Shown here is a 108-nucleotide RNA from Vitis rotundifolia, a member of the family "Small nucleolar RNA snoR100". Pairs were carried over by alignment from the consensus structure, which was predicted with WAR. A search with the family's covariance model found it, with a score of 54 bits. The family has 9 seed sequences and 1,851 matches in Rfam 15.1.

RNA sequence: GAAUGAAUGAACCAUGGUAAUGCACACAUAGACUAAACUUUGGGUGGUCAUUUCUGCUCUUUGAUGCCUUCUUGGCUUGAUUUUUGGUGCCUGGACUGACCUACACCU
Numbered sequence: 001g002a003a004u005g006a007a008u009g010a011a012c013c014a015u016g017g018u019a020a021u022g023c024a025c026a027c028a029u030a031g032a033c034u035a036a037a038c039u040u041u042g043g044g045u046g047g048u049c050a051u052u053u054c055u056g057c058u059c060u061u062u063g064a065u066g067c068c069u070u071c072u073u074g075g076c077u078u079g080a081u082u083u084u085u086g087g088u089g090c091c092u093g094g095a096c097u098g099a100c101c102u103a104c105a106c107c108u
Stems, first nucleotide, its partner, number of pairs: 015022001042092005053080002056076003
Dot-bracket structure: ..............(......)...................(((((......((.(((...............)))..)).......)))))................